Record summary:
Small nucleolar RNA Z279/snoR105/snoR108: a 99-nucleotide RNA sequence from Ipomoea nil. The family has 20 seed sequences and 906 matches in Rfam 15.1. Gene Ontology terms of the family: nucleolus and RNA processing. Taxonomically the source falls in Ipomoea (Eukaryota, Embryophyta, eudicotyledons, Solanales). This family includes the plant snoRNAs known as Z279, snoR105 and snoR108.
[Rfam]
Nucleotides: 099
Stems, first nucleotide, its partner, number of pairs: 001099004014090004023039005042078007058070003
Number, partner (000 for none) and nucleotide at each position: 001099g002098g003097g004096a005000u006000a007000u008000g009000a010000g011000g012000a013000g014090u015089g016088g017087u018000c019000a020000a021000u022000u023039c024038u025037u026036g027035c028000a029000u030000c031000u032000g033000g034000u035027g036026c037025g038024a039023g040000g041000u042078g043077a044076g045075u046074g047073c048072c049000c050000g051000c052000c053000u054000c055000g056000c057000c058070u059069g060068u061000u062000a063000c064000g065000a066000c067000a068060a069059u070058g071000a072048g073047g074046c075045a076044c077043u078042c079000u080000c081000a082000u083000u084000u085000u086000u087017a088016c089015c090014a091000u092000c093000u094000g095000a096004u097003c098002c099001u